This 133-nucleotide RNA from Piaya cayana belongs to the Rfam family "Small nucleolar RNA SNORA57". U99 belongs to the H/ACA class of snoRNAs which are thought to guide the sites of modification of uridines to pseudouridines, the target for this family is unknown. The match comes from Rfam's covariance-model search (95 bits). By type it is an H/ACA-box small nucleolar RNA.
RNA sequence: CCUCCCGUUCUUGGCAGACCCUGGCUGGCCGUGCCCGGGUCUGGGAUGUCCGGAGGCAGAGCAGUGGCCGGCGUCAAGUCUUCGGUGCCGGCGGUGGCGUCCGCCGGUCCUACCCUCAGGUGCCGGGACACGA
Numbered sequence: 001c002c003u004c005c006c007g008u009u010c011u012u013g014g015c016a017g018a019c020c021c022u023g024g025c026u027g028g029c030c031g032u033g034c035c036c037g038g039g040u041c042u043g044g045g046a047u048g049u050c051c052g053g054a055g056g057c058a059g060a061g062c063a064g065u066g067g068c069c070g071g072c073g074u075c076a077a078g079u080c081u082u083c084g085g086u087g088c089c090g091g092c093g094g095u096g097g098c099g100u101c102c103g104c105c106g107g108u109c110c111u112a113c114c115c116u117c118a119g120g121u122g123c124c125g126g127g128a129c130a131c132g133a
Stems, first nucleotide, its partner, number of pairs: 001056005015043006023035003069125006088107007